Shown here is a 78-nucleotide sequence from Sphingobium sp. YG1, a member of the family "Makes More Granules Regulator RNA (mmgR)". Its Rfam clan is "suhB sRNA clan". The organism belongs to Sphingobium, within Bacteria. For this family Rfam cites "Evidence for a second class of S-adenosylmethionine riboswitches and other regulatory RNA motifs in alpha-proteobacteria" (Corbino et al., Genome Biol, 2005). Rfam's curators write: SuhB later renamed mmgR (makes more granules regulator) was a putative non-coding RNA found multiple times in the Agrobacterium tumefaciens genome and related alpha-proteobacteria. Other non-coding RNAs uncovered in the same analysis include: speF, ybhL, metA, and serC.Several studies inSinorhizobium meliloti showed that suhB element is indeed a non-coding RNA:firstly it was detected on Northern blot and called Sm8RNA, secondly in an RNAseq study referred to as SmelC689.The mutant phenotype's (strain lacking the small RNA) cytoplasm contains higher content of polyhydroxybutyrate (PBH)storage granules than wild type strain.
RNA sequence: CGCCUCCCCCUUUGGAGGCGUCUCCUCCCUGAACCUUGGCCACCCCAUGCUUGCAUGGGGUGGUUUUUUAUGGGCUGU
Numbered sequence: 001c002g003c004c005u006c007c008c009c010c011u012u013u014g015g016a017g018g019c020g021u022c023u024c025c026u027c028c029c030u031g032a033a034c035c036u037u038g039g040c041c042a043c044c045c046c047a048u049g050c051u052u053g054c055a056u057g058g059g060g061u062g063g064u065u066u067u068u069u070a071u072g073g074g075c076u077g078u
Base pairs, nucleotide, nucleotide: 009018010017011016040063041062042061043060044059045058046057047056048055